[Rfam]
RNA sequence: UUUAUAGAAAAUAAAAAACUUCGUAUAACUCCAAAGAUAUGGUUUGGGGGUCUCUACCAGGAACCAAUAAUUCCUGAUUACGAAGAAGGUACAUGUACUU
Numbered sequence: 001u002u003u004a005u006a007g008a009a010a011a012u013a014a015a016a017a018a019c020u021u022c023g024u025a026u027a028a029c030u031c032c033a034a035a036g037a038u039a040u041g042g043u044u045u046g047g048g049g050g051u052c053u054c055u056a057c058c059a060g061g062a063a064c065c066a067a068u069a070a071u072u073c074c075u076g077a078u079u080a081c082g083a084a085g086a087a088g089g090u091a092c093a094u095g096u097a098c099u100u
Stems, first nucleotide, its partner, number of pairs: 019085007029049007058076006